[Rfam]
RNA sequence: UCGAAGUUCCAUCUACAAACGGAUAAGACUUUUGUCUUAGUGUAUAUGAAUCGUUGAAGGAUUGGAGCAAUACCCAAUAUCUUCUUUUAGUUGGGUAUUGCUCCAUU
Numbered sequence: 001u002c003g004a005a006g007u008u009c010c011a012u013c014u015a016c017a018a019a020c021g022g023a024u025a026a027g028a029c030u031u032u033u034g035u036c037u038u039a040g041u042g043u044a045u046a047u048g049a050a051u052c053g054u055u056g057a058a059g060g061a062u063u064g065g066a067g068c069a070a071u072a073c074c075c076a077a078u079a080u081c082u083u084c085u086u087u088u089a090g091u092u093g094g095g096u097a098u099u100g101c102u103c104c105a106u107u
Stems, first nucleotide, its partner, number of pairs: 008023003012019001061107001063105011075093003080089001
Plastid-psbA-1 3UTR RNA: a 107-nucleotide RNA from Phoenix dactylifera.
A reference for the family is Richter et al. (2023), "Retrograde signaling in plants: A critical review focusing on the GUN pathway and beyond", Plant Commun.
The match comes from Rfam's covariance-model search (94 bits).
The family is grouped with related families in Rfam's "Plastid-psbA 3UTR RNA clan".